Source information:
A member of the RNA family "mir-458 microRNA precursor family" from Myripristis murdjan, 80 nucleotides long. The source organism's lineage runs through Eukaryota, Osteoglossocephalai, Eurypterygia, Holocentriformes and Myripristis.
RNA sequence: AUGCAUACUGCAGUACCAUUUAAAGAGCUAUGACAACCAACUUUCACUUAUAGCUCUGAAAAUGGCGCUGCGCUCUGCAA
Numbered sequence: 001a002u003g004c005a006u007a008c009u010g011c012a013g014u015a016c017c018a019u020u021u022a023a024a025g026a027g028c029u030a031u032g033a034c035a036a037c038c039a040a041c042u043u044u045c046a047c048u049u050a051u052a053g054c055u056c057u058g059a060a061a062a063u064g065g066c067g068c069u070g071c072g073c074u075c076u077g078c079a080a
Base pairs, nucleotide, nucleotide: 002079003078004077007074009072011070012069013068016065017064018063019062020061021060024057025056026055027054028053029052030051031050032049033048
Dot-bracket structure: .(((..(.(.(((..((((((..((((((((((..............))))))))))..))))))..))).).)..))).
The match comes from Rfam's covariance-model search (60 bits). The literature on the family includes a 2008 paper in Genome Res by Murchison et al., "Conservation of small RNA pathways in platypus".